A member of the RNA family "Hepatitis delta virus ribozyme" from Diatraea saccharalis, 93 nucleotides long. The organism belongs to Diatraea, within Eukaryota. For this family Rfam cites "Crystal structure of a hepatitis delta virus ribozyme" (Ferre-D'Amare et al., Nature, 1998). About the family: The hepatitis delta virus (HDV) ribozyme is necessary for viral replication and is thought to be the only catalytic RNA known to be required for viability of a human pathogen. The ribozyme acts to process the RNA transcripts to unit lengths in a self cleavage reaction. The ribozyme is found to be active in vivo in the absence of any protein factors and is the fastest known naturally occurring self-cleaving RNA.

RNA sequence: AUGGGGUGCGUAGUCUGGCAACCUCCUCGUGGUGCACCCUGGGCAACGUGGCGGCUCGAAGUUUCUUUGAGCCGCCGCGGCUAAUGUCAGACA
Numbered sequence: 001a002u003g004g005g006g007u008g009c010g011u012a013g014u015c016u017g018g019c020a021a022c023c024u025c026c027u028c029g030u031g032g033u034g035c036a037c038c039c040u041g042g043g044c045a046a047c048g049u050g051g052c053g054g055c056u057c058g059a060a061g062u063u064u065c066u067u068u069g070a071g072c073c074g075c076c077g078c079g080g081c082u083a084a085u086g087u088c089a090g091a092c093a
Stems, first nucleotide, its partner, number of pairs: 003040007014089001018087003021033003025042002047079011059067003